[Rfam]
RNA sequence: AGGUUAUUGAGUAUAUGGGGAUGAUGACACGACAUUCAAUGUCAUAAAUGCGAGAAAAAAUAAAAGGGGAAACAAUUUCCCCUUUAUUUGCUAAU
Number, nucleotide and partner (000 for none) at each position: 001a000002g000003g000004u000005u000006a000007u000008u038009g000010a036011g035012u034013a000014u000015a000016u032017g000018g030019g000020g028021a000022u000023g000024a000025u000026g000027a000028c020029a000030c018031g000032a016033c000034a012035u011036u010037c000038a008039a000040u000041g000042u000043c000044a000045u000046a000047a000048a000049u000050g000051c000052g000053a000054g000055a000056a000057a000058a000059a000060a000061u000062a000063a085064a084065a083066g082067g081068g080069g079070a078071a077072a076073c000074a000075a000076u072077u071078u070079c069080c068081c067082c066083u065084u064085u063086a000087u000088u000089u000090g000091c000092u000093a000094a000095u000
RNA: sraA